[Rfam]
Nucleotides: 064
Base pairs, nucleotide, nucleotide: 001064002063003062004061005060006059007058008036011029012028013027014026015025016024022046023045030037038055039054040053041052042051043050044049
Number, partner (000 for none) and nucleotide at each position: 001064a002063c003062u004061u005060a006059u007058a008036c009000a010000g011029g012028g013027u014026a015025g016024c017000a018000u019000a020000a021000u022046g023045g024016g025015c026014u027013a028012c029011u030037g031000a032000c033000c034000c035000c036008g037030c038055c039054a040053u041052g042051a043050a044049a045023c046022c047000u048000a049044u050043u051042u052041c053040a054039u055038g056000a057000c058007u059006a060005u061004a062003g063002g064001u